[Rfam]
RNA sequence: CGGCCUUGUUCUGUGUGGAAGACUAGUGAUUUUGUUGUUUUUGGUUGGAUGAAUUGACAACAAAUCGCAGUCUGCCCCAUGGCACAGGCCU
Dot-bracket structure: .(((((.((.(((((.((.(((((.(((((((.((((((................)))))))))))))))))).)).))))).))))))).
The record is a 91-nucleotide RNA from Albula glossodonta, which matches "mir-7 microRNA precursor family" in Rfam.
The base pairs follow the family's consensus structure, which was predicted with PFOLD.
Gene Ontology terms of the family: miRNA-mediated post-transcriptional gene silencing and RISC complex.
Taxonomically the source falls in Albula (Eukaryota, Metazoa, Bilateria, Elopomorpha).
The match comes from Rfam's covariance-model search (86 bits).